The family of this 70-nucleotide RNA sequence from Cricetulus griseus is "mir-503 microRNA precursor family". Rfam's curators put it in the seed alignment.
RNA sequence: UGCCCUAGCAGCGUCCAAAACAGUACUGCAGUAUUUGGUAAGCUGGAGUAUUGUUUCCGCUGCUCGGGUA
Dot-bracket structure: .((((..((((((....(((((((.((.(((.(.....)...))).)).))))))).))))))..)))).
Numbered sequence: 001u002g003c004c005c006u007a008g009c010a011g012c013g014u015c016c017a018a019a020a021c022a023g024u025a026c027u028g029c030a031g032u033a034u035u036u037g038g039u040a041a042g043c044u045g046g047a048g049u050a051u052u053g054u055u056u057c058c059g060c061u062g063c064u065c066g067g068g069u070a
Stems, first nucleotide, its partner, number of pairs: 002069004008063006018056007026048002029045003033039001